[Rfam]
RNA: L31-Actinobacteria ribosomal protein leader
Organism: Microlunatus kandeliicorticis
Nucleotides: 043
Stems, first nucleotide, its partner, number of pairs: 003043003007040004015034005022027001
Number, partner (000 for none) and nucleotide at each position: 001000c002000u003043g004042g005041c006000a007040c008039c009038g010037g011000u012000u013000c014000a015034c016033c017032u018031c019030g020000u021000u022027c023000g024000a025000c026000c027022g028000u029000u030019c031018g032017a033016g034015g035000a036000c037010c038009c039008g040007g041005g042004c043003c